[Rfam]
The record is an 85-nucleotide RNA from Lentibacillus salicampi, which matches "c-di-GMP-I riboswitch aptamer" in Rfam. Lineage of the source: Bacteria > Bacillati > Caryophanales > Bacillaceae > Lentibacillus.
RNA sequence: GGUCAGAAAAGGCAAACUCAUCGAAAGGUGGGGGCGCAAAGUCACAGGUCUUCCAUGGCAACAUGAUGACGGCUGGACUGCCUGC
Numbered sequence: 001g002g003u004c005a006g007a008a009a010a011g012g013c014a015a016a017c018u019c020a021u022c023g024a025a026a027g028g029u030g031g032g033g034g035c036g037c038a039a040a041g042u043c044a045c046a047g048g049u050c051u052u053c054c055a056u057g058g059c060a061a062c063a064u065g066a067u068g069a070c071g072g073c074u075g076g077a078c079u080g081c082c083u084g085c
Stems, first nucleotide, its partner, number of pairs: 012037002017032006040079004045075003048070003055064003

Pairs were carried over by alignment from the consensus structure, which is taken from published work.